[Rfam]
The family of this 73-nucleotide RNA from Cnemophilus loriae is "tRNA". The base pairs follow the family's consensus structure, which is taken from published work. It scores 46 bits against the family's covariance model. The organism belongs to Cnemophilus, within Eukaryota.

RNA sequence: GGUUUUUUAGCUCAGUAGGUUAGAGCAUGGUGCUGAUAACACCAAGGUUGUGGGUUCAAUCCCCUACGUGCCA
Numbered sequence: 001g002g003u004u005u006u007u008u009a010g011c012u013c014a015g016u017a018g019g020u021u022a023g024a025g026c027a028u029g030g031u032g033c034u035g036a037u038a039a040c041a042c043c044a045a046g047g048u049u050g051u052g053g054g055u056u057c058a059a060u061c062c063c064c065u066a067c068g069u070g071c072c073a
Stems, first nucleotide, its partner, number of pairs: 001072003005068001007066001010026004028044005050065001052063003

Transfer RNA (tRNA) molecules are approximately 80 nucleotides in length.